[Rfam]
RNA sequence: CUCGCUUUUCGGCCUUUGGGCUAAGAUCAAGUGUAGUAUCUGUUCUUAUCAGUUUAGUAUCUGAUAUGUCCUCUAUAUGAGGGCUCUAUAUUAAGCAGGAUUUAAAGCUGGGAGCCGGAAACGGGGCUUGCUCCGUCUGCUCCACGCGUAGGCCUGGUAUUGCAGUACUUCCGGGCUUGGUGCACCAUUU
Numbered sequence: 001c002u003c004g005c006u007u008u009u010c011g012g013c014c015u016u017u018g019g020g021c022u023a024a025g026a027u028c029a030a031g032u033g034u035a036g037u038a039u040c041u042g043u044u045c046u047u048a049u050c051a052g053u054u055u056a057g058u059a060u061c062u063g064a065u066a067u068g069u070c071c072u073c074u075a076u077a078u079g080a081g082g083g084c085u086c087u088a089u090a091u092u093a094a095g096c097a098g099g100a101u102u103u104a105a106a107g108c109u110g111g112g113a114g115c116c117g118g119a120a121a122c123g124g125g126g127c128u129u130g131c132u133c134c135g136u137c138u139g140c141u142c143c144a145c146g147c148g149u150a151g152g153c154c155u156g157g158u159a160u161u162g163c164a165g166u167a168c169u170u171c172c173g174g175g176c177u178u179g180g181u182g183c184a185c186c187a188u189u190u
Base pairs, nucleotide, nucleotide: 007026008025009024011022012021013020014019047066048065049064050063051062052061068084069083070082071081072080073079111143112142113141114140115139117137118136123134124133125132126131146183147182148181149180151178153175154174155173156172157171
The record is a 190-nucleotide sequence from Hemibagrus wyckioides, which matches "U2 spliceosomal RNA" in Rfam. Its Rfam clan is "U2 clan". It is annotated as a spliceosomal small nuclear RNA. The base pairs follow the family's consensus structure, which is taken from published work. Lineage of the source: Eukaryota > Craniata > Otophysi > Characiphysae > Hemibagrus. Rfam describes the family as follows. U2 is a small nuclear RNA (snRNA) component of the spliceosome (involved in pre-mRNA splicing). Complementary binding between U2 snRNA (in an area lying towards the 5' end but 3' to hairpin I) and the branchpoint sequence (BPS) of the intron results the bulging out of an unpaired adenosine, on the BPS, which initiates a nucleophilic attack at the intronic 5' splice site, thus starting the first of two transesterification reactions that mediate splicing.